[Rfam]
RNA sequence: UGGUCGGGAGGUCUUCGGUGGGACGAAGGCCGUGAAUUGACCGGAACUCCCCUCUCGCAAGGACCCCGUGGCCUUCCCCGCCGGCCCGGUG
Numbered sequence: 001u002g003g004u005c006g007g008g009a010g011g012u013c014u015u016c017g018g019u020g021g022g023a024c025g026a027a028g029g030c031c032g033u034g035a036a037u038u039g040a041c042c043g044g045a046a047c048u049c050c051c052c053u054c055u056c057g058c059a060a061g062g063a064c065c066c067c068g069u070g071g072c073c074u075u076c077c078c079c080g081c082c083g084g085c086c087c088g089g090u091g
Stems, first nucleotide, its partner, number of pairs: 001043005010031008064091001066089003070086004
Dot-bracket structure: (((((....((((((((......)))))))).......)))))....................(.(((.((((.........))))))).)
Description:
Shown here is a 91-nucleotide sequence from Limimaricola cinnabarinus, a member of the family "Rhodo-rpoB RNA". The base pairs follow the family's consensus structure, which is taken from published work. The source organism's lineage runs through Bacteria, Pseudomonadota, Alphaproteobacteria, Limimaricola and Limimaricola cinnabarinus. Rfam's curators put it in the seed alignment.